[Rfam]
RNA sequence: UCAUGGGGGGAUCGCCACCGGCCAGCGCGUUGCGCCCGUCGGUGCCGAUUUG
Numbered sequence: 001u002c003a004u005g006g007g008g009g010g011a012u013c014g015c016c017a018c019c020g021g022c023c024a025g026c027g028c029g030u031u032g033c034g035c036c037c038g039u040c041g042g043u044g045c046c047g048a049u050u051u052g
Base pairs, nucleotide, nucleotide: 016044017043018042019041020040021039022038025035026034027033028032
RNA: ffh sRNA
Organism: Rubricella aquisinus